[Rfam]
RNA sequence: GGAGUCGUGUCCGAGCGGUUUAAGGUGCAGUCUUGGAAAGGCUGUGUAGGUGAAAGCUUACCCAGGGUUCGAAUCCCUGCGACUCCG
Numbered sequence: 001g002g003a004g005u006c007g008u009g010u011c012c013g014a015g016c017g018g019u020u021u022a023a024g025g026u027g028c029a030g031u032c033u034u035g036g037a038a039a040g041g042c043u044g045u046g047u048a049g050g051u052g053a054a055a056g057c058u059u060a061c062c063c064a065g066g067g068u069u070c071g072a073a074u075c076c077c078u079g080c081g082a083c084u085c086c087g
Stems, first nucleotide, its partner, number of pairs: 001086007011025002028044005063079005